Annotation: sroC RNA: a 160-nucleotide RNA from [Enterobacter] lignolyticus. About the family: This family consists of a number of bacterial sroC RNA genes of around 160 bases in length. sroC is found in several Enterobacterial species. It base-pairs with GcvB. This interaction triggers the degradation of GcvB by RNase E, alleviating the GcvB-mediated mRNA repression of other amino acid-related transport and metabolic genes. Rfam links the family to the GO terms RNA binding and regulation of RNA stability. The match comes from Rfam's covariance-model search (126 bits).

[Rfam]
RNA sequence: ACUAAUUAAAACAAUGAGGGGCGGGACCUCCUGCCCUCACGAUUAUCAGGAAGCACGGACAGACUAUACGCAGCGUGGUCGUUCCCCACGCUACGCGAAAAAACAGCCUCCUGAUUAAUCUUCGAGGGUAGCGCUGCUACCCUUUUUUUUUCGGAGUAGA
Numbered sequence: 001a002c003u004a005a006u007u008a009a010a011a012c013a014a015u016g017a018g019g020g021g022c023g024g025g026a027c028c029u030c031c032u033g034c035c036c037u038c039a040c041g042a043u044u045a046u047c048a049g050g051a052a053g054c055a056c057g058g059a060c061a062g063a064c065u066a067u068a069c070g071c072a073g074c075g076u077g078g079u080c081g082u083u084c085c086c087c088a089c090g091c092u093a094c095g096c097g098a099a100a101a102a103a104c105a106g107c108c109u110c111c112u113g114a115u116u117a118a119u120c121u122u123c124g125a126g127g128g129u130a131g132c133g134c135u136g137c138u139a140c141c142c143u144u145u146u147u148u149u150u151u152c153g154g155a156g157u158a159g160a
Base pairs, nucleotide, nucleotide: 012159014157019036020035021034022033023031024030037127038126040124041123042119043118044117045116048112049111060097070094072092073091074090075089076088077087078086